[Rfam]
Description: Shown here is a 104-nucleotide sequence from Halobacillus halophilus, a member of the family "Purine riboswitch aptamer".
RNA sequence: GCCCGAUUACAUAGCCCAACUCGUAUAUUCUCGGAAAUAAGGUCCGAGCGUCUCUACCCGGUUCCCAAUGAAAGAACUGGACUACGAGUUAAAGUGCACCCAUA
Dot-bracket structure: .................((((((((....((((((.......)))))).........(((((((.........)))))))..))))))))..............
Lineage of the source: Bacteria > Bacillati > Caryophanales > Bacillaceae > Halobacillus halophilus. A search with the family's covariance model found it, with a score of 69 bits. Clan: Purine riboswitches.